A member of the RNA family "MIR7504 microRNA precursor family" from Gossypium hirsutum, 124 nucleotides long. Rfam links the family to the GO terms RISC complex and miRNA-mediated post-transcriptional gene silencing. It scores 94 bits against the family's covariance model.

RNA sequence: AAUAGGUGAAUGGCAAAUCAGAUUUUUCCUCUUGACUUUUAGCAUUUUUAGUUGGAUUUAAAUUUUUUCUCGAGAAAAAAAGUUGAAAAUCAAGAGAAAAAAUAUGAUUUGUCAUUCUCCUAUU
Number, nucleotide and partner (000 for none) at each position: 001a124002a123003u122004a121005g120006g119007u000008g117009a116010a115011u114012g113013g112014c111015a110016a109017a108018u107019c106020a105021g000022a103023u102024u101025u100026u099027u098028c000029c096030u095031c094032u093033u092034g091035a090036c000037u088038u087039u086040u000041a084042g083043c000044a000045u080046u079047u078048u077049u000050a000051g000052u000053u000054g000055g000056a000057u000058u000059u000060a000061a000062a000063u000064u000065u000066u000067u000068u000069c000070u000071c000072g000073a000074g000075a000076a000077a048078a047079a046080a045081a000082g000083u042084u041085g000086a039087a038088a037089a000090u035091c034092a033093a032094g031095a030096g029097a000098a027099a026100a025101a024102a023103u022104a000105u020106g019107a018108u017109u016110u015111g014112u013113c012114a011115u010116u009117c008118u000119c006120c005121u004122a003123u002124u001

The organism belongs to Gossypium, within Eukaryota.